Shown here is a 75-nucleotide RNA sequence from Xenopus tropicalis, a member of the family "mir-96 microRNA precursor family".
On this family, see Houbaviy et al., Dev Cell 2003: "Embryonic stem cell-specific MicroRNAs".
Rfam 15.1 lists 691 matches to the family in 590 species.
Taxonomically the source falls in Silurana (Eukaryota, Chordata, Tetrapoda, Anura).

[Rfam]
RNA sequence: GGCCUGCUUUGGCACUAGCACAUUUUUGCUUUUGUACAUAUACUUUGAGCAAUUAUGUGUAGUGCCAAUAUAGGA
Numbered sequence: 001g002g003c004c005u006g007c008u009u010u011g012g013c014a015c016u017a018g019c020a021c022a023u024u025u026u027u028g029c030u031u032u033u034g035u036a037c038a039u040a041u042a043c044u045u046u047g048a049g050c051a052a053u054u055a056u057g058u059g060u061a062g063u064g065c066c067a068a069u070a071u072a073g074g075a
Base pairs, nucleotide, nucleotide: 003074004073005072006071009068010067011066012065013064014063015062016061018060019059020058021057022056023055026052027051028050029049030048031047